[Rfam]
RNA sequence: GAGACAUGUUUAUGGGGCAGGAUUUGUUCCAGUAGGGCUUUGGUGCUCACUGAGUCUGCCUCUUGAAUGUGUUCCU
Number, nucleotide and partner (000 for none) at each position: 001g075002a000003g073004a072005c071006a070007u069008g000009u067010u066011u065012a064013u000014g062015g061016g060017g059018c058019a057020g000021g056022a055023u054024u000025u000026g000027u000028u000029c000030c052031a051032g050033u049034a000035g047036g046037g044038c043039u000040u000041u000042g000043g038044u037045g000046c036047u035048c000049a033050c032051u031052g030053a000054g023055u022056c021057u019058g018059c017060c016061u015062c014063u000064u012065g011066a010067a009068u000069g007070u006071g005072u004073u003074c000075c001076u000

mir-9229 microRNA precursor family: a 76-nucleotide RNA from Pipistrellus kuhlii.
The family has 7 seed sequences and 27,225 matches in Rfam 15.1.
NCBI's taxonomy places the organism under Eukaryota, Bilateria, Laurasiatheria, Yangochiroptera, Pipistrellus.
A search with the family's covariance model found it, with a score of 73 bits.
Pairs were carried over by alignment from the consensus structure, which was predicted with RNAalifold.
Rfam links the family to the GO terms miRNA-mediated post-transcriptional gene silencing and RISC complex.